Record summary
This 107-nucleotide RNA from Phoenix dactylifera belongs to the Rfam family "Plastid-psbA-1 3UTR RNA". Pairs were carried over by alignment from the consensus structure, which was predicted with LocARNA. The family's RNA type in Rfam is cis-regulatory element.
RNA sequence: UCAAAGUUUCAUCCACAAAUGGGUAAGACUUUUGUCUUAGUAUAUAUAAAUUGUUAAAAGAAUGGAGCAAUAACCAAUAUGUUGUUCUAGUUGGGUAUUGUUGCAUU
Numbered sequence: 001u002c003a004a005a006g007u008u009u010c011a012u013c014c015a016c017a018a019a020u021g022g023g024u025a026a027g028a029c030u031u032u033u034g035u036c037u038u039a040g041u042a043u044a045u046a047u048a049a050a051u052u053g054u055u056a057a058a059a060g061a062a063u064g065g066a067g068c069a070a071u072a073a074c075c076a077a078u079a080u081g082u083u084g085u086u087c088u089a090g091u092u093g094g095g096u097a098u099u100g101u102u103g104c105a106u107u
Stems, first nucleotide, its partner, number of pairs: 008023005061107004066102007075093003083089001